The family of this 36-nucleotide RNA sequence from Williamwhitmania taraxaci is "DUF805b RNA". A search with the family's covariance model found it, with a score of 37 bits. The family's consensus secondary structure is taken from published work.
Nucleotides: 036
Stems, first nucleotide, its partner, number of pairs: 002021004010035003
Number, partner (000 for none) and nucleotide at each position: 001000u002021g003020g004019g005018c006000a007000g008000a009000u010035u011034c012033c013000g014000a015000a016000a017000a018005g019004c020003c021002c022000u023000c024000a025000a026000u027000a028000g029000a030000g031000u032000a033012g034011g035010a036000u